Shown here is a 702-nucleotide RNA sequence from Plasmodium gonderi, a member of the family "Plasmodium RNase_P".
For this family Rfam cites "Structural RNAs of known and unknown function identified in malaria parasites by comparative genomics and RNA analysis" (Chakrabarti et al., RNA, 2007).
A search with the family's covariance model found it, with a score of 231 bits.
By type it is a ribozyme.

RNA sequence: UGUCGAAUGAGUUUAAGCUCAAAAUAUCCUGCAAAUAUACAUACACAAAAUAAAAUGGAAAGAAAAAUAUAGAAAAAAAAUAAAUAAAAGUAGAAAAGGAAAAAAAAAAAAAUGGGAGAAAUGUAAAAAUUUUCUUCAAUUUUUCUUUUGUUUCUUUUUUUUUUUUUUCUUUUCUUCUUUUAUUUCCUUUUUUUUUUUUUAUUAUUUCAUUCUUCCUAUUUUGUGUAAUUUUUGAAAACAGGAAGGAAGGUCUGAGAUGCUGCAAAUAAAGAAGAGACAAAAGGAAAAGAAAUAAAAAAAAAAAAAAUUAUGGAUACAAAGUUUUGUCAAAAGCUUUGAAAUUCUACAUUUUUUUUUUUAUUUUCCUUUUGUUUUAUUCCUUUCGAAUUCUUCUUUAAACAUUUUUUUGAGAAAAAAAAUAUUGAAUAAAUAUUAAUUAGCUACCAGAAAUAUCAAUCAUAUACUUUUGAUCUCCACCACCACCCCUAAUAAAUAUAUAUUAUUUUUUGGGGAGUGGGGGAGAGACCUGGUAUAUGAUUUUGAAAAAGCUAAUAAGCAAGUAUACGUUAUUGAGUUCGAUUUUUGAGAUUUUUCGACGUUUCCAAAUGUUUAUAUUGGACCCAUUCAUUCUGGGUUAUAAUGUACAUUUGGAACACCCGAGAAAUAACCUAAUUCAGACUACUCGUAAAUUCAUUCGCACAU
Numbered sequence: 001u002g003u004c005g006a007a008u009g010a011g012u013u014u015a016a017g018c019u020c021a022a023a024a025u026a027u028c029c030u031g032c033a034a035a036u037a038u039a040c041a042u043a044c045a046c047a048a049a050a051u052a053a054a055a056u057g058g059a060a061a062g063a064a065a066a067a068u069a070u071a072g073a074a075a076a077a078a079a080a081u082a083a084a085u086a087a088a089a090g091u092a093g094a095a096a097a098g099g100a101a102a103a104a105a106a107a108a109a110a111a112a113u114g115g116g117a118g119a120a121a122u123g124u125a126a127a128a129a130u131u132u133u134c135u136u137c138a139a140u141u142u143u144u145c146u147u148u149u150g151u152u153u154c155u156u157u158u159u160u161u162u163u164u165u166u167u168u169c170u171u172u173u174c175u176u177c178u179u180u181u182a183u184u185u186c187c188u189u190u191u192u193u194u195u196u197u198u199u200u201a202u203u204a205u206u207u208c209a210u211u212c213u214u215c216c217u218a219u220u221u222u223g224u225g226u227a228a229u230u231u232u233u234g235a236a237a238a239c240a241g242g243a244a245g246g247a248a249g250g251u252c253u254g255a256g257a258u259g260c261u262g263c264a265a266a267u268a269a270a271g272a273a274g275a276g277a278c279a280a281a282a283g284g285a286a287a288a289g290a291a292a293u294a295a296a297a298a299a300a301a302a303a304a305a306a307a308u309u310a311u312g313g314a315u316a317c318a319a320a321g322u323u324u325u326g327u328c329a330a331a332a333g334c335u336u337u338g339a340a341a342u343u344c345u346a347c348a349u350u351u352u353u354u355u356u357u358u359u360a361u362u363u364u365c366c367u368u369u370u371g372u373u374u375u376a377u378u379c380c381u382u383u384c385g386a387a388u389u390c391u392u393c394u395u396u397a398a399a400c401a402u403u404u405u406u407u408u409g410a411g412a413a414a415a416a417a418a419a420u421a422u423u424g425a426a427u428a429a430a431u432a433u434u435a436a437u438u439a440g441c442u443a444c445c446a447g448a449a450a451u452a453u454c455a456a457u458c459a460u461a462u463a464c465u466u467u468u469g470a471u472c473u474c475c476a477c478c479a480c481c482a483c484c485c486c487u488a489a490u491a492a493a494u495a496u497a498u499a500u501u502a503u504u505u506u507u508u509g510g511g512g513a514g515u516g517g518g519g520g521a522g523a524g525a526c527c528u529g530g531u532a533u534a535u536g537a538u539u540u541u542g543a544a545a546a547a548g549c550u551a552a553u554a555a556g557c558a559a560g561u562a563u564a565c566g567u568u569a570u571u572g573a574g575u576u577c578g579a580u581u582u583u584u585g586a587g588a589u590u591u592u593u594c595g596a597c598g599u600u601u602c603c604a605a606a607u608g609u610u611u612a613u614a615u616u617g618g619a620c621c622c623a624u625u626c627a628u629u630c631u632g633g634g635u636u637a638u639a640a641u642g643u644a645c646a647u648u649u650g651g652a653a654c655a656c657c658c659g660a661g662a663a664a665u666a667a668c669c670u671a672a673u674u675c676a677g678a679c680u681a682c683u684c685g686u687a688a689a690u691u692c693a694u695u696c697g698c699a700c701a702u
Base pairs, nucleotide, nucleotide: 004697005696006695007694008693009692010691011690012689013688014687015686018587019586020585021584022583023582024581027243028242029241030240031239042227043226044225045224046223047222048221049220050219051218052217248680249679252677253676254675255674256673257563258562259561260560261559262557263556403418404417405416406415407414408413433555434554435553437552438551439550440549441548442547458536459535460534461533462532463531464530467529469527471525472524473523474522588665589664590663591662592661593660594659